[Rfam]
RNA sequence: CCGCGCAGCCGGGGAGAUAGCGGCGCCCUGUACCUGCAAUCCGCUACAGCAGGGGUGAUGAUUUGCCUAGGGGAUAUUUUGUAGGGCUGCCCUUUAUAAGUGGUGUUGACGUUUGGGUCUUAUGCAACAGAAUCCUGUGAACCGUGUCAGGUCAGGAAUGAAGCAGCACUAAGCAGAUCGUUUUGUGUGACAUGAGGAAGCCUAGACCGAGCUAACUGUAAAGGUAACGCUUAUGGGAUAUUCACAAAGCAAAUCGCGCGG
Number, nucleotide and partner (000 for none) at each position: 001c261002c260003g259004c258005g257006c256007a000008g056009c055010c054011g029012g028013g027014g026015a000016g024017a000018u022019a000020g000021c000022g018023g000024c016025g000026c014027c013028c012029u011030g000031u000032a000033c053034c052035u051036g050037c049038a000039a000040u000041c000042c000043g000044c000045u000046a000047c000048a000049g037050c036051a035052g034053g033054g010055g009056u008057g000058a000059u000060g000061a254062u253063u252064u251065g250066c249067c000068u000069a000070g245071g000072g243073g242074a241075u000076a239077u238078u237079u236080u235081g234082u233083a232084g231085g230086g000087c000088u226089g225090c000091c000092c223093u222094u221095u220096a219097u218098a000099a000100g216101u215102g213103g212104u211105g000106u000107u000108g000109a000110c000111g207112u206113u205114u204115g203116g202117g201118u200119c196120u195121u194122a193123u192124g191125c187126a186127a000128c185129a184130g183131a182132a181133u000134c000135c176136u175137g174138u173139g000140a000141a000142c000143c000144g169145u168146g167147u166148c000149a000150g000151g000152u161153c160154a159155g000156g000157a000158a000159u154160g153161a152162a000163g000164c000165a000166g147167c146168a145169c144170u000171a000172a000173g138174c137175a136176g135177a000178u000179c000180g000181u132182u131183u130184u129185g128186u126187g125188u000189g000190a000191c124192a123193u122194g121195a120196g119197g000198a000199a000200g118201c117202c116203u115204a114205g113206a112207c111208c000209g000210a000211g104212c103213u102214a000215a101216c100217u000218g097219u096220a095221a094222a093223g092224g000225u089226a088227a000228c000229g000230c085231u084232u083233a082234u081235g080236g079237g078238a077239u076240a000241u074242u073243c072244a000245c070246a000247a000248a000249g066250c065251a064252a063253a062254u061255c000256g006257c005258g004259c003260g002261g001
RNA: Bacterial large signal recognition particle RNA
Organism: Eubacterium sp. AF36-5BH